[Rfam]
RNA sequence: ACCACCUGAGGGGAAGGUACUCCUAGUACGAGAGGAACAGAGUACCGGGGCCUCUAGUCUACCGGUUGUCCGGUAGGGCAAAGCCGGGCAGCCACGCCCUGAGGGUUAACCGCUGAAAGCAUCUAAGUGGGAAACCCUCCCCGAAAAUAGGUGGUUCUGGUCUGGCGGGGCAACUCGUCGGGCCAGGGACCCUCCUCUAGAACAGGGGGUUGAUGGGGCAGGGGUGUGCGCCGCGAGGGCGUCAGUCCGAGCGGUUAGCCCGCUGCUCCCAAACGGGUCAGCC
Number, nucleotide and partner (000 for none) at each position: 001a155002c154003c153004a152005c151006c150007u149008g000009a000010g142011g141012g140013g139014a000015a000016g046017g045018u044019a043020c042021u041022c040023c000024u000025a000026g000027u000028a000029c000030g000031a000032g000033a000034g000035g000036a000037a000038c000039a000040g022041a021042g020043u019044a018045c017046c016047g100048g099049g098050g097051c096052c000053u000054c000055u094056a000057g092058u000059c000060u000061a000062c087063c086064g085065g084066u083067u080068g079069u078070c077071c076072g000073g000074u000075a000076g071077g070078g069079c068080a067081a000082a000083g066084c065085c064086g063087g062088g000089c000090a000091g000092c057093c000094a055095c000096g051097c050098c049099c048100u047101g000102a000103g137104g136105g135106u000107u000108a000109a000110c130111c129112g128113c127114u126115g000116a000117a000118a000119g000120c000121a000122u000123c000124u000125a000126a114127g113128u112129g111130g110131g000132a000133a000134a000135c105136c104137c103138u000139c013140c012141c011142c010143g000144a000145a000146a000147a000148u000149a007150g006151g005152u004153g003154g002155u001156u000157c000158u000159g000160g000161u000162c000163u000164g000165g000166c000167g000168g000169g000170g000171c000172a000173a000174c000175u000176c000177g000178u000179c000180g000181g000182g000183c000184c000185a000186g000187g000188g000189a278190c277191c276192c275193u209194c208195c207196u206197c205198u000199a000200g000201a000202a000203c000204a000205g197206g196207g195208g194209g193210u000211u000212g000213a000214u271215g270216g269217g267218g266219c265220a264221g263222g261223g260224g259225u000226g000227u000228g000229c000230g255231c254232c253233g252234c251235g000236a000237g248238g247239g246240c000241g000242u000243c000244a000245g000246u239247c238248c237249g000250a000251g234252c233253g232254g231255u230256u000257a000258g000259c224260c223261c222262g000263c221264u220265g219266c218267u217268c000269c216270c215271a214272a000273a000274c000275g192276g191277g190278u189279c000280a000281g000282c000283c000
RNA: Archaeal large subunit ribosomal RNA, nucleotides 2746 to 3028